[Rfam]
RNA sequence: CAUUGUUUUGAUCACCUGCAGAUCAGGCAUUAGAAAAGAGAGAUCAGCGAAGUCCUUUGGACUUGAUCAGCUUAAUAUAGGAGCUACUGAUUUCAUCUUCUUCAGCCCAACGCUCUGAAGCAAUGAAGUACACAAGUUCCAUCUUUGCUCUCCAGCUCUGCAUCGUG
Numbered sequence: 001c002a003u004u005g006u007u008u009u010g011a012u013c014a015c016c017u018g019c020a021g022a023u024c025a026g027g028c029a030u031u032a033g034a035a036a037a038g039a040g041a042g043a044u045c046a047g048c049g050a051a052g053u054c055c056u057u058u059g060g061a062c063u064u065g066a067u068c069a070g071c072u073u074a075a076u077a078u079a080g081g082a083g084c085u086a087c088u089g090a091u092u093u094c095a096u097c098u099u100c101u102u103c104a105g106c107c108c109a110a111c112g113c114u115c116u117g118a119a120g121c122a123a124u125g126a127a128g129u130a131c132a133c134a135a136g137u138u139c140c141a142u143c144u145u146u147g148c149u150c151u152c153c154a155g156c157u158c159u160g161c162a163u164c165g166u167g
Stems, first nucleotide, its partner, number of pairs: 008070007016117001020114002026106001032101004041093007051085003056081004120166002123163003128142002132138001147156003
RNA: Interferon gamma 5' UTR regulatory element
Organism: Chinchilla lanigera